[Rfam]
RNA sequence: GAUCCGAUAGUAUGAUAGAAAGAAAUCUAUUUCUUUCUAUCAUACUAUCCGUUUUUUUUUAUUCUAGUGUAUACAGUUG
Numbered sequence: 001g002a003u004c005c006g007a008u009a010g011u012a013u014g015a016u017a018g019a020a021a022g023a024a025a026u027c028u029a030u031u032u033c034u035u036u037c038u039a040u041c042a043u044a045c046u047a048u049c050c051g052u053u054u055u056u057u058u059u060u061a062u063u064c065u066a067g068u069g070u071a072u073a074c075a076g077u078u079g
Base pairs, nucleotide, nucleotide: 006049007048008047009046010045011044012043013042014041015040016039017038018037019036020035021034022033023028